[Rfam]
RNA sequence: UUGGGUGAAAUCAAUAUAGGACCUACACUUUGGAAAUGGAACCCACAUAAAGUGGUAAGACAUACAUUGAUUUCAACCAA
Numbered sequence: 001u002u003g004g005g006u007g008a009a010a011u012c013a014a015u016a017u018a019g020g021a022c023c024u025a026c027a028c029u030u031u032g033g034a035a036a037u038g039g040a041a042c043c044c045a046c047a048u049a050a051a052g053u054g055g056u057a058a059g060a061c062a063u064a065c066a067u068u069g070a071u072u073u074c075a076a077c078c079a080a
Stems, first nucleotide, its partner, number of pairs: 001080004006075010017064002024057002026054007
Overview:
Shown here is an 80-nucleotide RNA sequence from Medicago truncatula, a member of the family "MIR5269 microRNA precursor family". The family's consensus secondary structure was predicted with RNAalifold. NCBI's taxonomy places the organism under Eukaryota, Spermatophyta, eudicotyledons, Fabales, Medicago.